The record is a 74-nucleotide sequence from Bipolaricaulis sanaerobius, which matches "tRNA" in Rfam. A search with the family's covariance model found it, with a score of 68 bits. Taxonomically the source falls in Bipolaricaulis (SeqCode) (Bacteria, Bacteria candidate phyla, Candidatus Bipolaricaulota, Candidatus Bipolaricaulaceae). Transfer RNA (tRNA) molecules are approximately 80 nucleotides in length. Clan: tRNA clan. Pairs were carried over by alignment from the consensus structure, which is taken from published work. It is annotated as a transfer RNA.
[Rfam]
RNA sequence: GGGUCCGUGGCUCAGGUGGUUAGAGCGCGCGCCUGAUAAGCGCGAGGUCCCUGGUUCGAGUCCAGGCGGGCCCA
Dot-bracket structure: (((((((..((((.........)))).(((((.......))))).....(((((.......)))))))))))).